[Rfam]
RNA sequence: AGUGCUUCAAUGGGAACAUUAAGCACCAUAUUGGUGCAAUGACCUUUGGAUAACCCUUUCUAUGCUCCGUGAAAGCGAUCACAAAGGGACUCUGCAAUACUUGUUUGC
Number, nucleotide and partner (000 for none) at each position: 001a000002g026003u025004g024005c023006u022007u021008c000009a020010a019011u018012g017013g000014g000015a000016a000017c012018a011019u010020u009021a007022a006023g005024c004025a003026c002027c103028a102029u000030a000031u099032u000033g000034g000035u096036g095037c094038a093039a000040u000041g090042a000043c087044c086045u085046u084047u083048g082049g080050a079051u078052a000053a000054c000055c000056c000057u075058u074059u073060c000061u071062a070063u069064g068065c000066u000067c000068c064069g063070u062071g061072a000073a059074a058075g057076c000077g000078a051079u050080c049081a000082c048083a047084a046085a045086g044087g043088g000089a000090c041091u000092c000093u038094g037095c036096a035097a000098u000099a031100c000101u000102u028103g027104u000105u000106u000107g000108c000
RNA: ES222 sRNA
Organism: Escherichia coli